Record summary:
The family of this 68-nucleotide sequence is "Cyano-1 RNA". The sequence is in the family's curated seed alignment.
RNA sequence: UCUCGUGUGAGGAGUGCAGACGCUACUCAGGGUCGAAACAAGGACAGACUCCUGAGGUUGUCUGAAUU
Numbered sequence: 001u002c003u004c005g006u007g008u009g010a011g012g013a014g015u016g017c018a019g020a021c022g023c024u025a026c027u028c029a030g031g032g033u034c035g036a037a038a039c040a041a042g043g044a045c046a047g048a049c050u051c052c053u054g055a056g057g058u059u060g061u062c063u064g065a066a067u068u
Base pairs, nucleotide, nucleotide: 015064018063019062020061021060022059025058026057029053030052031051032049033048034047